Shown here is a 210-nucleotide RNA from Polaromonas sp. OV174, a member of the family "RT-15 RNA". The organism belongs to Polaromonas, within Bacteria. The family's consensus secondary structure is taken from published work.

[Rfam]
RNA sequence: CAGCGCCUGCUGCAUGACGGUCAAGGCCAUCAUGCCCGUGCGUUUAUUGAAUCCGGUCGAGCCGCUGGGCCACACGCCCACCGCCAUGCGCAUCGCAGAUACCGGCGAGCAACACCAGCUCGCGUUAUGGUCUGGCGCAGUUUCCGGGCUGAUCGGCACUCAAAGCAAUUUGAACCUUUGGCCCGGCGACGUCGAUAGCUCGGCACCCCG
Numbered sequence: 001c002a003g004c005g006c007c008u009g010c011u012g013c014a015u016g017a018c019g020g021u022c023a024a025g026g027c028c029a030u031c032a033u034g035c036c037c038g039u040g041c042g043u044u045u046a047u048u049g050a051a052u053c054c055g056g057u058c059g060a061g062c063c064g065c066u067g068g069g070c071c072a073c074a075c076g077c078c079c080a081c082c083g084c085c086a087u088g089c090g091c092a093u094c095g096c097a098g099a100u101a102c103c104g105g106c107g108a109g110c111a112a113c114a115c116c117a118g119c120u121c122g123c124g125u126u127a128u129g130g131u132c133u134g135g136c137g138c139a140g141u142u143u144c145c146g147g148g149c150u151g152a153u154c155g156g157c158a159c160u161c162a163a164a165g166c167a168a169u170u171u172g173a174a175c176c177u178u179u180g181g182c183c184c185g186g187c188g189a190c191g192u193c194g195a196u197a198g199c200u201c202g203g204c205a206c207c208c209c210g
Stems, first nucleotide, its partner, number of pairs: 004042003012035006019028003057203006063083002066080005087139005096134004102130002105123005141189002144186009155176002